RNA sequence: UGAGUGUUAAGAUGAUGGUUAUGCAAAUAGCCAAGUCUAUCUCUGAGAUUUCGGUAAAACGAAACACUAAUUUAUCGA
Dot-bracket structure: .(((......(((...((((((....))))))..)))...))).......((((((((............))))))))
Numbered sequence: 001u002g003a004g005u006g007u008u009a010a011g012a013u014g015a016u017g018g019u020u021a022u023g024c025a026a027a028u029a030g031c032c033a034a035g036u037c038u039a040u041c042u043c044u045g046a047g048a049u050u051u052c053g054g055u056a057a058a059a060c061g062a063a064a065c066a067c068u069a070a071u072u073u074a075u076c077g078a
Stems, first nucleotide, its partner, number of pairs: 002043003011037003017032006051078008